[Rfam]
RNA sequence: AGUCGCCCGUGACAUCAAGAAACUAGUGAUUAUGCCAAACCACAGGGACAUAUCACAGUUUACUUGCUGUCGCGGGCGGUG
Numbered sequence: 001a002g003u004c005g006c007c008c009g010u011g012a013c014a015u016c017a018a019g020a021a022a023c024u025a026g027u028g029a030u031u032a033u034g035c036c037a038a039a040c041c042a043c044a045g046g047g048a049c050a051u052a053u054c055a056c057a058g059u060u061u062a063c064u065u066g067c068u069g070u071c072g073c074g075g076g077c078g079g080u081g
Stems, first nucleotide, its partner, number of pairs: 003079005009073006016066004020061005026056005032051003035047001
Shown here is an 81-nucleotide RNA from Caenorhabditis elegans, a member of the family "mir-43 microRNA precursor family". Taxonomically the source falls in Caenorhabditis (Eukaryota, Metazoa, Bilateria, Rhabditidae). On this family, see Kato et al., Genome Biol 2009: "Dynamic expression of small non-coding RNAs, including novel microRNAs and piRNAs/21U-RNAs, during Caenorhabditis elegans development". Rfam links the family to the GO terms RISC complex and miRNA-mediated post-transcriptional gene silencing. The sequence is in the family's curated seed alignment. Rfam 15.1 lists 10 matches to the family in 9 species.